[Rfam]
RNA sequence: AGGCAGCGCCUACCCGCUGGAAGCCGUAGGUGCAGCGCGGAACCGAGCGCAAGCGAGUCGCCGUAAAGUAUUCGAGCCGUGGGUGAGCCAGCUCACAAUGGCGAAGCCCGACUUCUUUUGGUCGGCCGGAUGCAUUGGCGACAGCGUCCGCGUGAAGCUUCCGUC
Number, nucleotide and partner (000 for none) at each position: 001a000002g000003g000004c000005a000006g000007c000008g000009c000010c000011u000012a000013c000014c000015c000016g000017c000018u000019g000020g000021a000022a000023g165024c000025c163026g162027u000028a000029g000030g158031u000032g000033c000034a000035g153036c152037g151038c150039g149040g148041a000042a000043c144044c000045g142046a000047g000048c000049g000050c000051a000052a000053g000054c000055g000056a000057g000058u141059c140060g139061c138062c137063g000064u000065a000066a000067a000068g133069u132070a131071u000072u129073c128074g127075a000076g126077c125078c124079g123080u000081g109082g108083g107084u106085g000086a000087g102088c101089c100090a099091g000092c000093u000094c000095a000096c000097a000098a000099u090100g089101g088102c087103g000104a000105a000106g084107c083108c082109c081110g000111a000112c000113u000114u000115c000116u000117u000118u000119u000120g000121g000122u000123c079124g078125g077126c076127c074128g073129g072130a000131u070132g069133c068134a000135u000136u000137g062138g061139c060140g059141a058142c045143a000144g043145c000146g000147u000148c040149c039150g038151c037152g036153u035154g000155a000156a000157g000158c030159u000160u000161c000162c026163g025164u000165c023